[Rfam]
Overview:
This 70-nucleotide RNA sequence belongs to the Rfam family "L2-Alphaproteobacteria ribosomal protein leader". Rfam's curators put it in the seed alignment. The family's consensus secondary structure is taken from published work.
RNA sequence: GGGGACCUUCGGGGCCCUUCACAUUAAGCCGGGCCUCAGGGUCGCGGCACAAGCAGACGGAAGACAGAAA
Numbered sequence: 001g002g003g004g005a006c007c008u009u010c011g012g013g014g015c016c017c018u019u020c021a022c023a024u025u026a027a028g029c030c031g032g033g034c035c036u037c038a039g040g041g042u043c044g045c046g047g048c049a050c051a052a053g054c055a056g057a058c059g060g061a062a063g064a065c066a067g068a069a070a
Base pairs, nucleotide, nucleotide: 001018002017003016004015006014007013008012028048029047030046031045033043